The family of this 43-nucleotide RNA sequence from Bacillus sp. V3-13 is "Ribosomal protein L19 leader". On this family, see Zengel and Lindahl, Prog Nucleic Acid Res Mol Biol 1994: "Diverse mechanisms for regulating ribosomal protein synthesis in Escherichia coli". NCBI's taxonomy places the organism under Bacteria, Bacilli, Caryophanales, Bacillaceae, Bacillus. By type it is a cis-regulatory leader. The base pairs follow the family's consensus structure, which was predicted with CMfinder.
RNA sequence: ACGGUGUUCCGCUGCAGCAGAAAAAGUCGUGCAAGAGCAUCUG
Numbered sequence: 001a002c003g004g005u006g007u008u009c010c011g012c013u014g015c016a017g018c019a020g021a022a023a024a025a026g027u028c029g030u031g032c033a034a035g036a037g038c039a040u041c042u043g
Stems, first nucleotide, its partner, number of pairs: 003041007013033004